This 154-nucleotide sequence from Sporotomaculum syntrophicum belongs to the Rfam family "glmS glucosamine-6-phosphate activated ribozyme aptamer". By type it is a riboswitch. It scores 104 bits against the family's covariance model. From the family's description: This entry contains a glucosamine-6-phosphate activated ribozyme that is found in the mRNA for GlmS. GlmS is an enzyme that uses fructose-6-phosphate and glutamine to generate glucosamine-6-phosphate. The ribozyme catalyses self cleavage of the glmS mRNA that is thought to regulate GlmS activity.

RNA sequence: UCAUAAUAACAAGCGCCAGAACCCGGAUUACCCGGGUUGACGAGGUGGGAGCUAAUCGAAAUUUCGGCGGGUACUCCCCGGUCCGGUCACGACCGUCAAAGGUACUACAAAACCUGUGGGUAACUGCGGGGACAAAGGGUACCGGGUGACUUAG
Numbered sequence: 001u002c003a004u005a006a007u008a009a010c011a012a013g014c015g016c017c018a019g020a021a022c023c024c025g026g027a028u029u030a031c032c033c034g035g036g037u038u039g040a041c042g043a044g045g046u047g048g049g050a051g052c053u054a055a056u057c058g059a060a061a062u063u064u065c066g067g068c069g070g071g072u073a074c075u076c077c078c079c080g081g082u083c084c085g086g087u088c089a090c091g092a093c094c095g096u097c098a099a100a101g102g103u104a105c106u107a108c109a110a111a112a113c114c115u116g117u118g119g120g121u122a123a124c125u126g127c128g129g130g131g132a133c134a135a136a137g138g139g140u141a142c143c144g145g146g147u148g149a150c151u152u153a154g
Stems, first nucleotide, its partner, number of pairs: 020038007047078005056067004079095005101143006113130007